[Rfam]
RNA sequence: CACUUAUCCAGAAAGACCGAGGGACAGGCCCGUUGACGUCUUAGCAACCCUUCCAGGCGGCAUAAUAAUGCCGGGGAAAAGGUGCUAACUCCUGACAGAUAAGUU
Numbered sequence: 001c002a003c004u005u006a007u008c009c010a011g012a013a014a015g016a017c018c019g020a021g022g023g024a025c026a027g028g029c030c031c032g033u034u035g036a037c038g039u040c041u042u043a044g045c046a047a048c049c050c051u052u053c054c055a056g057g058c059g060g061c062a063u064a065a066u067a068a069u070g071c072c073g074g075g076g077a078a079a080a081g082g083u084g085c086u087a088a089c090u091c092c093u094g095a096c097a098g099a100u101a102a103g104u105u
Base pairs, nucleotide, nucleotide: 002104003103004102005101006100007099008098013042014041015040016039017038021031022030023029025094026093027092028091043086044085045084046083048082049081051078052077053076054075090097
RNA: SAM riboswitch aptamer (S box leader)